[Rfam]
Rfam assigns this 103-nucleotide RNA to the family "Caenorhabditis snoRNA ceN69". The match comes from Rfam's covariance-model search (95 bits). It is annotated as a C/D-box small nucleolar RNA. Pairs were carried over by alignment from the consensus structure. The family has 4 seed sequences and 11 matches in Rfam 15.1.
Nucleotides: 103
Base pairs, nucleotide, nucleotide: 002102003101004100005099
Number, partner (000 for none) and nucleotide at each position: 001000g002102a003101c004100a005099g006000a007000a008000u009000g010000a011000u012000g013000a014000g015000u016000c017000g018000c019000u020000c021000a022000c023000a024000a025000a026000g027000a028000g029000u030000g031000a032000c033000a034000a035000u036000a037000a038000g039000c040000c041000g042000a043000g044000u045000g046000u047000u048000a049000g050000c051000g052000g053000u054000u055000c056000a057000u058000u059000c060000c061000g062000u063000g064000a065000u066000g067000a068000u069000c070000a071000u072000u073000c074000c075000c076000u077000c078000a079000a080000a081000a082000g083000c084000g085000a086000u087000a088000c089000u090000a091000u092000u093000a094000u095000c096000u097000g098000a099005c100004u101003g102002u103000a